Background
Rfam assigns this 318-nucleotide RNA sequence from Scyliorhinus torazame to the family "7SK RNA". It is annotated as a non-coding RNA gene. Clan: 7SK clan. For this family Rfam cites "Transcription: surprising role for an elusive small nuclear RNA" (Blencowe, Curr Biol, 2002). From the family's description: 7SK was discovered as an abundant small nuclear RNA in the mid-70s but a possible function has only recently been suggested. Rfam 15.1 lists 49,373 matches to the family in 668 species. A search with the family's covariance model found it, with a score of 203 bits.

RNA sequence: AGGUGUGAGGGUGAUCUUGCUGGGACAUCUGUCACCACAUUGAUUUCUAGGGUUGAUUCGGCUGAUCUGGCUGGCUAGGCAGAUGUCUCCCUUCCCUCACAGCUCCAUAUGUGUCCCUCCCAAAGCUCAACAGUCGAUUGAAGAGGAUAACCCCCCCUCGAAGAGGACCGCUCAGCCAGUCUAGGGUAUAUGACGUAGCUACACUCUCCUGCUAGGCUAAACCUCCAAGACCACUUGUAGGAAGACACAGGGAAGUCGAGCUCUAAGGCUUCAGACACAUCCAAGUCAGGCACUGCACACGGCAGUCUGCCAUUCUUU
Numbered sequence: 001a002g003g004u005g006u007g008a009g010g011g012u013g014a015u016c017u018u019g020c021u022g023g024g025a026c027a028u029c030u031g032u033c034a035c036c037a038c039a040u041u042g043a044u045u046u047c048u049a050g051g052g053u054u055g056a057u058u059c060g061g062c063u064g065a066u067c068u069g070g071c072u073g074g075c076u077a078g079g080c081a082g083a084u085g086u087c088u089c090c091c092u093u094c095c096c097u098c099a100c101a102g103c104u105c106c107a108u109a110u111g112u113g114u115c116c117c118u119c120c121c122a123a124a125g126c127u128c129a130a131c132a133g134u135c136g137a138u139u140g141a142a143g144a145g146g147a148u149a150a151c152c153c154c155c156c157c158u159c160g161a162a163g164a165g166g167a168c169c170g171c172u173c174a175g176c177c178a179g180u181c182u183a184g185g186g187u188a189u190a191u192g193a194c195g196u197a198g199c200u201a202c203a204c205u206c207u208c209c210u211g212c213u214a215g216g217c218u219a220a221a222c223c224u225c226c227a228a229g230a231c232c233a234c235u236u237g238u239a240g241g242a243a244g245a246c247a248c249a250g251g252g253a254a255g256u257c258g259a260g261c262u263c264u265a266a267g268g269c270u271u272c273a274g275a276c277a278c279a280u281c282c283a284a285g286u287c288a289g290g291c292a293c294u295g296c297a298c299a300c301g302g303c304a305g306u307c308u309g310c311c312a313u314u315c316u317u318u
Stems, first nucleotide, its partner, number of pairs: 002105002005100007013093002019089001024087010035074002038069002042067004047061002114166002116163001118161002121136001123134001140157001145155002198261003204255002207252005217241002221238002283318003289311003292306005